[Rfam]
RNA sequence: AAGACUAUACUUUCAGGAAACAUUUCUAUAGUUUGUUACUAGAGAAGUUUCUUUGAUGGUGUAGAGCACCCAAGACUAUGAGGAGGAGAUACAGCAUUUUCUCCUGAGUGUGAAUCCAGCUCUUGGUGUUGCUUUGGUAACUGCCAUUUGCCAUUGAUGACUGUUCUUAUUCUAUCCUCAGAGAGAAUCAGGGGGAGAACGUGUUCUGAGUGGG
Numbered sequence: 001a002a003g004a005c006u007a008u009a010c011u012u013u014c015a016g017g018a019a020a021c022a023u024u025u026c027u028a029u030a031g032u033u034u035g036u037u038a039c040u041a042g043a044g045a046a047g048u049u050u051c052u053u054u055g056a057u058g059g060u061g062u063a064g065a066g067c068a069c070c071c072a073a074g075a076c077u078a079u080g081a082g083g084a085g086g087a088g089a090u091a092c093a094g095c096a097u098u099u100u101c102u103c104c105u106g107a108g109u110g111u112g113a114a115u116c117c118a119g120c121u122c123u124u125g126g127u128g129u130u131g132c133u134u135u136g137g138u139a140a141c142u143g144c145c146a147u148u149u150g151c152c153a154u155u156g157a158u159g160a161c162u163g164u165u166c167u168u169a170u171u172c173u174a175u176c177c178u179c180a181g182a183g184a185g186a187a188u189c190a191g192g193g194g195g196a197g198a199a200c201g202u203g204u205u206c207u208g209a210g211u212g213g214g
Stems, first nucleotide, its partner, number of pairs: 002040002006035002009032003015027004049065002054061001076213004094202002097199009108164003119151002124146004128141005167190001170187004175182002
RNA: Small nucleolar RNA U3
Organism: Molossus molossus